Shown here is a 225-nucleotide RNA sequence, a member of the family "RT-2 RNA".

[Rfam]
RNA sequence: CACGGUCUGACGCAGUAACCGCCGGAAGGCGGCGAAGCAGUACCCAUGCAGAAGGAGAGAUUAUUCCCGGCAAAAGCCAAAACAAUCCGCCGGUGCAGACGGCUGGACGCUGCUUGCAUGGCAGGCCGAUGUGCGCGGGCCUGUUUCAUAGCCGGACUGCCACGAGGGUAGAACGCGCACCCGACAAUCAUCCCUUACGGCGGGUGCCCGAACGGGCAAGGAGAA
Numbered sequence: 001c002a003c004g005g006u007c008u009g010a011c012g013c014a015g016u017a018a019c020c021g022c023c024g025g026a027a028g029g030c031g032g033c034g035a036a037g038c039a040g041u042a043c044c045c046a047u048g049c050a051g052a053a054g055g056a057g058a059g060a061u062u063a064u065u066c067c068c069g070g071c072a073a074a075a076g077c078c079a080a081a082a083c084a085a086u087c088c089g090c091c092g093g094u095g096c097a098g099a100c101g102g103c104u105g106g107a108c109g110c111u112g113c114u115u116g117c118a119u120g121g122c123a124g125g126c127c128g129a130u131g132u133g134c135g136c137g138g139g140c141c142u143g144u145u146u147c148a149u150a151g152c153c154g155g156a157c158u159g160c161c162a163c164g165a166g167g168g169u170a171g172a173a174c175g176c177g178c179a180c181c182c183g184a185c186a187a188u189c190a191u192c193c194c195u196u197a198c199g200g201c202g203g204g205u206g207c208c209c210g211a212a213c214g215g216g217c218a219a220g221g222a223g224a225a
Stems, first nucleotide, its partner, number of pairs: 004045002019032005069078003085205008094197001095160004100154005109117002120145007164196005171182001